Background
Makes More Granules Regulator RNA (mmgR): a 78-nucleotide RNA sequence from Croceibacterium xixiisoli. Taxonomically the source falls in Croceibacterium (Bacteria, Pseudomonadati, Alphaproteobacteria, Erythrobacteraceae). For this family Rfam cites "A genome-wide survey of sRNAs in the symbiotic nitrogen-fixing alpha-proteobacterium Sinorhizobium meliloti" (Schluter et al., BMC Genomics, 2010). Rfam classes the family as a small RNA. SuhB later renamed mmgR (makes more granules regulator) was a putative non-coding RNA found multiple times in the Agrobacterium tumefaciens genome and related alpha-proteobacteria. Other non-coding RNAs uncovered in the same analysis include: speF, ybhL, metA, and serC.Several studies inSinorhizobium meliloti showed that suhB element is indeed a non-coding RNA:firstly it was detected on Northern blot and called Sm8RNA, secondly in an RNAseq study referred to as SmelC689.The mutant phenotype's (strain lacking the small RNA) cytoplasm contains higher content of polyhydroxybutyrate (PBH)storage granules than wild type strain. The sRNA is required to limit the PBH intracellular accumulation when the nitrogen-fixing Sinorhizobium meliloti is under condition of surplus carbon in relation to nitrogen. It has been renamed to mmgR. Further study confirmed that mmgR fine-tunes the regulation of PBH storage.Northern blot confirmed the expression of the sRNA in other rhizobia species. MmgR homologues were found in most alpha-proteobacteria.
RNA sequence: AGAGGGUGCCUUUCAGGCAUCCUCUCCCAAGACUUUCAGGCCCGCCCGGCAACGGUGCGGGCCUUUUUUCUGGGGUGG
Number, nucleotide and partner (000 for none) at each position: 001a000002g000003a000004g000005g000006g000007u000008g018009c017010c016011u015012u000013u000014c000015a011016g010017g009018c008019a000020u000021c000022c000023u000024c000025u000026c000027c000028c000029a000030a000031g000032a000033c000034u000035u000036u000037c000038a000039g063040g062041c061042c060043c059044g058045c057046c000047c055048g000049g000050c000051a000052a000053c000054g000055g047056u000057g045058c044059g043060g042061g041062c040063c039064u000065u000066u000067u000068u000069u000070c000071u000072g000073g000074g000075g000076u000077g000078g000